[Rfam]
The record is a 259-nucleotide sequence from Bacillus safensis, which matches "BsrG" in Rfam. Gene Ontology terms of the family: autolysis and toxin activity. From the family's description: bsrE, bsrG and bsrH pair through intermolecular interactions with antisense sRNAs. They form type I toxin/antitoxin system that includes an mRNA encoding for a short, toxic peptide (bsrE, bsrG and bsrH) and an antitoxin that is comprised of an antisense RNA. bsrG encodes a 39-amino-acid toxin, and the 180 nucleotide antisense sRNA called SR4 acts as the antitoxin (they overlap by 123 nucleotides). SR4 interaction with the 3'UTR of bsrG RNA promotes bsrG degradation and inhibits its translation. For this family Rfam cites "Novel small RNA-encoding genes in the intergenic regions of Bacillus subtilis" (Saito et al., Gene, 2008). Rfam classes the family as a small RNA.

RNA sequence: UACAAUUGAACGGCUUGCUCAAGGGCGUCUGACUCAUCCCCGAUAGGAAGGGGGUGAUGCAUAUGUCAACAUUUGAAGCGAUUUCCCUUAUGCUUUUAUUCGGGAUGUUUAUCUUUACUUUGUUGACGUAUAUAGACAAAAAAUAGACUCCCCCUUGAGCUGUGGAAGGUUAAAGGGAAGUCUACCUAAAGAACCUAUUCGAUAAGCCAGCCCCUUGAAGGGCCUCAUUGUACAUUGCCGGGAUGUUAGAGCAUCCUGG
Number, nucleotide and partner (000 for none) at each position: 001u232002a231003c230004a229005a228006u000007u000008g226009a225010a000011c000012g208013g207014c206015u205016u204017g000018c159019u158020c157021a156022a155023g154024g153025g152026c000027g148028u147029c146030u145031g000032a000033c000034u057035c056036a055037u000038c054039c053040c052041c051042g000043a000044u000045a000046g000047g000048a000049a000050g000051g041052g040053g039054g038055u036056g035057a034058u000059g000060c000061a000062u000063a000064u000065g127066u126067c125068a124069a123070c122071a121072u000073u000074u000075g000076a000077a000078g093079c092080g091081a000082u000083u000084u000085c000086c000087c000088u000089u000090a000091u080092g079093c078094u000095u000096u000097u000098a000099u000100u000101c000102g119103g118104g000105a116106u000107g000108u000109u000110u000111a000112u000113c000114u000115u000116u105117a000118c103119u102120u000121u071122g070123u069124u068125g067126a066127c065128g000129u000130a000131u000132a000133u000134a000135g000136a000137c000138a000139a000140a000141a000142a000143a000144u000145a030146g029147a028148c027149u000150c000151c000152c025153c024154c023155u022156u021157g020158a019159g018160c000161u000162g000163u000164g000165g000166a000167a000168g000169g000170u190171u189172a000173a000174a000175g000176g000177g000178a000179a000180g000181u000182c000183u000184a000185c000186c000187u000188a000189a171190a170191g000192a000193a000194c000195c000196u000197a000198u000199u000200c000201g000202a000203u000204a016205a015206g014207c013208c012209a000210g223211c222212c221213c220214c000215u000216u000217g000218a000219a000220g213221g212222g211223c210224c000225u009226c008227a000228u005229u004230g003231u002232a001233c000234a000235u000236u000237g000238c259239c258240g257241g256242g255243a254244u253245g252246u251247u000248a000249g000250a000251g246252c245253a244254u243255c242256c241257u240258g239259g238